[Rfam]
RNA sequence: AGGGAUGGCCAAGGGGGUCAUUGUAGAAGCGUGCUCGUCGCGACCCCUGCCAGCUCUUUUCAGUGCUGCAAUUCUACA
Numbered sequence: 001a002g003g004g005a006u007g008g009c010c011a012a013g014g015g016g017g018u019c020a021u022u023g024u025a026g027a028a029g030c031g032u033g034c035u036c037g038u039c040g041c042g043a044c045c046c047c048u049g050c051c052a053g054c055u056c057u058u059u060u061c062a063g064u065g066c067u068g069c070a071a072u073u074c075u076a077c078a
Base pairs, nucleotide, nucleotide: 014047015046016045017044018043019042022078023077024076025075026074027073028072029041030040031039051068052067053066054065056063057062